The family of this 76-nucleotide RNA from Ameiurus melas is "mir-7563 microRNA precursor family".
The family's consensus secondary structure was predicted with RNAalifold.
The family has 3 seed sequences and 362 matches in Rfam 15.1.
A search with the family's covariance model found it, with a score of 86 bits.

RNA sequence: ACCGCGUACUUACCUACUAUAUAAUAGCUAAAAUACAUGUAUUUCACUUACUAUAUAGUAGGUAAGUAUGCGGUUU
Numbered sequence: 001a002c003c004g005c006g007u008a009c010u011u012a013c014c015u016a017c018u019a020u021a022u023a024a025u026a027g028c029u030a031a032a033a034u035a036c037a038u039g040u041a042u043u044u045c046a047c048u049u050a051c052u053a054u055a056u057a058g059u060a061g062g063u064a065a066g067u068a069u070g071c072g073g074u075u076u
Base pairs, nucleotide, nucleotide: 001074002073003072004071005070006069007068008067009066010065011064012063013062014061015060017058018057019056020055021054022053023052025050026049027048029046031044033042034041035040
The source organism's lineage runs through Eukaryota, Vertebrata, Euteleostomi, Actinopterygii and Ameiurus.